The record is a 582-nucleotide part of an RNA from Corynebacterium incognitum, which matches "Bacterial small subunit ribosomal RNA" in Rfam. Clan: SSU clan. On this family, see Yusupov et al., Science 2001: "Crystal structure of the ribosome at 5.5 A resolution". Pairs were carried over by alignment from the consensus structure, which is taken from published work. Taxonomically the source falls in Corynebacterium (Bacteria, Bacillati, Actinomycetota, Actinomycetes).
RNA sequence: UGACGGGGGCCCGCACAAGCGGCGGAGCAUGUGGAUUAAUUCGAUGCAACGCGAAGAACCUUACCUGGGCUUGACAUACAUCAGAUUGCCGUAGAGAUACGGUUUCCCUUGUGGUUGGUGUACAGGUGGUGCAUGGUUGUCGUCAGCUCGUGUCGUGAGAUGUUGGGUUAAGUCCCGCAACGAGCGCAACCCUUGUCUUAUGUUGCCAGCAUUUAGUUGGGGACUCAUGAGAGACUGCCGGGGUUAACUCGGAGGAAGGUGGGGAUGACGUCAAAUCAUCAUGCCCCUUAUGUCCAGGGCUUCACACAUGCUACAAUGGUCGGUACAACGCGCAGCUACAUCGUGAGGUGGUGCGAAUCGCUGAAAGCCGGCCUUAGUUCGGAUUGGGGUCUGCAACUCGACCCCAUGAAGUCGGAGUCGCUAGUAAUCGCAGAUCAGCUACGCUGCGGUGAAUACGUUCCCGGGCCUUGUACACACCGCCCGUCACGUCAUGAAAGUUGGUAACACCCGAAGCCAGUGGCUCAAACUCGUUAGGGAGCUGUCGAAGGUGGGAUCGGCGAUUGGGACGAAGUCGUAACAAGG
Dot-bracket structure: (((((.(((((((.((..((((((.((((((((((....((((........))))........(((((((......((.(((((...((((((....))))))...((....))))))).))..((.((((..((((((.((...(((((((((....)))..((((......))))..)))))).....((((.(((((((...((..((......))))....)))))))..((.(((((.....))))).)).....))))....)).).)))...))))))))....)))))))...)).)))))))).)...(((((((.....(((..((...(((....)))...))....))).....)))))))......(....(((((((........)))))))....).....))))).....(((((((..........)))))))......))...)))))))))).))..(.(..((...((((.(((..((((((..((((....(.((((..(((..(.....).))).)))).)...))))..))))))..))).))))....))...)..).